[Rfam]
Nucleotides: 105
Stems, first nucleotide, its partner, number of pairs: 001105001003103004
Number, partner (000 for none) and nucleotide at each position: 001105u002000u003103u004102g005101u006100g007000a008000g009000u010000g011000a012000u013000g014000u015000a016000a017000a018000a019000a020000u021000g022000u023000c024000c025000u026000u027000a028000g029000g030000u031000u032000g033000g034000u035000c036000u037000u038000u039000u040000u041000g042000a043000c044000c045000g046000u047000u048000u049000u050000g051000g052000u053000c054000a055000a056000a057000g058000u059000u060000u061000c062000u063000g064000a065000c066000c067000c068000a069000c070000c071000a072000a073000u074000g075000u076000u077000a078000g079000g080000a081000u082000u083000u084000g085000u086000c087000a088000u089000a090000g091000u092000u093000a094000c095000a096000c097000u098000g099000a100006c101005a102004c103003a104000u105001g